[Rfam]
RNA sequence: GCCCAGGUGGCGGAAUUGGCAGACGCAGUAGACUCAAAAUCUUCCGGAGAAAUCCUUGUGGGUUCGAUUCCCACCCUGGGCA
Number, nucleotide and partner (000 for none) at each position: 001g081002c080003c079004c078005a077006g076007g075008u000009g000010g026011c025012g024013g000014a000015a000016u000017u000018g000019g000020c000021a000022g000023a000024c012025g011026c010027a000028g044029u000030a042031g041032a040033c000034u000035c000036a000037a000038a000039a000040u032041c031042u030043u000044c028045c000046g000047g000048a000049g000050a000051a000052a000053u000054c000055c000056u000057u000058g074059u073060g072061g071062g070063u000064u000065c000066g000067a000068u000069u000070c062071c061072c060073a059074c058075c007076c006077u005078g004079g003080g002081c001082a000
tRNA: an 82-nucleotide RNA sequence from Rariglobus hedericola.
It scores 53 bits against the family's covariance model.
Lineage of the source: Bacteria > Verrucomicrobiota > Opitutia > Opitutales > Rariglobus.
Transfer RNA (tRNA) molecules are approximately 80 nucleotides in length.